[Rfam]
RNA: Glycine riboswitch aptamer
RNA sequence: CGAGCCGGAGCGGGAGAGACCUCGCCAGCGCGGCGGGGCGCCGAAGGAGCAAGAUCCCCACCAAACUCUCAGGCAUCCGAUACCGCUUCAGGCCA
Number, nucleotide and partner (000 for none) at each position: 001c000002g000003a000004g000005c000006c000007g089008g088009a087010g086011c085012g084013g083014g000015a000016g000017a000018g000019a000020c038021c037022u036023c035024g034025c033026c032027a000028g000029c000030g000031c000032g026033g025034c024035g023036g022037g021038g020039c000040g074041c073042c072043g070044a069045a000046g000047g068048a067049g066050c000051a000052a000053g061054a000055u000056c000057c000058c000059c000060a000061c053062c000063a000064a000065a000066c049067u048068c047069u044070c043071a000072g042073g041074c040075a000076u000077c000078c000079g000080a000081u000082a000083c013084c012085g011086c010087u009088u008089c007090a000091g000092g000093c000094c000095a000